[Rfam]
RNA: Iron response element II
Organism: Chiloscyllium punctatum
RNA sequence: UAAUUAUCGGGAACAGUGCUUCUCAUAGUUC
Numbered sequence: 001u002a003a004u005u006a007u008c009g010g011g012a013a014c015a016g017u018g019c020u021u022c023u024c025a026u027a028g029u030u031c
Base pairs, nucleotide, nucleotide: 002030003029004028005027006026007025009024010023011022012021013020014018
Dot-bracket structure: .((((((.((((((...).))))))))))).